[Rfam]
RNA sequence: GUGGGGGGUGAGAACGGCUUCAUCCAGGAGUUGAUGCCCAGUUAUCCAGCGCCUAGAUGAUGCCUUUCUUCAUCCCCUUCA
Numbered sequence: 001g002u003g004g005g006g007g008g009u010g011a012g013a014a015c016g017g018c019u020u021c022a023u024c025c026a027g028g029a030g031u032u033g034a035u036g037c038c039c040a041g042u043u044a045u046c047c048a049g050c051g052c053c054u055a056g057a058u059g060a061u062g063c064c065u066u067u068c069u070u071c072a073u074c075c076c077c078u079u080c081a
Stems, first nucleotide, its partner, number of pairs: 003078009012068003016064003020060005026054003030050004034045003
The record is an 81-nucleotide RNA from Eptesicus fuscus, which matches "mir-337 microRNA precursor family" in Rfam. The family's consensus secondary structure was predicted with RNAalifold.